[Rfam]
RNA sequence: GCUACGCCCGGACGAAAUUCUCAGCUCGGCCGACAUUAGCGGGUCGGUGGGAUCUUCGUCCGUUUGUAUC
Numbered sequence: 001g002c003u004a005c006g007c008c009c010g011g012a013c014g015a016a017a018u019u020c021u022c023a024g025c026u027c028g029g030c031c032g033a034c035a036u037u038a039g040c041g042g043g044u045c046g047g048u049g050g051g052a053u054c055u056u057c058g059u060c061c062g063u064u065u066g067u068a069u070c
Stems, first nucleotide, its partner, number of pairs: 003068004009062007019052003024048001027046005
A member of the RNA family "mir-278 microRNA precursor family" from Pieris macdunnoughi, 70 nucleotides long. A search with the family's covariance model found it, with a score of 60 bits. On this family, see Stark et al., Genome Res 2007: "Systematic discovery and characterization of fly microRNAs using 12 Drosophila genomes". The family's consensus secondary structure was predicted with RNAalifold.